[Rfam]
RNA sequence: UGGAAAUGAUGAGAUUCCACUUCAUUGGUCCGUGUUUCUGAAGCCUGUGAUUUUAGUGGAAGUUCUGAUUCA
Numbered sequence: 001u002g003g004a005a006a007u008g009a010u011g012a013g014a015u016u017c018c019a020c021u022u023c024a025u026u027g028g029u030c031c032g033u034g035u036u037u038c039u040g041a042a043g044c045c046u047g048u049g050a051u052u053u054u055a056g057u058g059g060a061a062g063u064u065c066u067g068a069u070u071c072a
Stems, first nucleotide, its partner, number of pairs: 001072004
Rfam assigns this 72-nucleotide RNA sequence from Sarcophilus harrisii to the family "Small nucleolar RNA SNORD18". Its Rfam clan is "SNORD18 clan". Lineage of the source: Eukaryota > Metazoa > Amniota > Dasyuromorphia > Sarcophilus.